[Rfam]
RNA sequence: GGGCGCGGACGACCGCACCUCGCUGACCAUCGCCGGGGACGACGCCG
Numbered sequence: 001g002g003g004c005g006c007g008g009a010c011g012a013c014c015g016c017a018c019c020u021c022g023c024u025g026a027c028c029a030u031c032g033c034c035g036g037g038g039a040c041g042a043c044g045c046c047g
Base pairs, nucleotide, nucleotide: 001020002019003018005016006015007014008013034047035046036045038043
RNA: Guanidine-II riboswitch aptamer (mini-ykkC)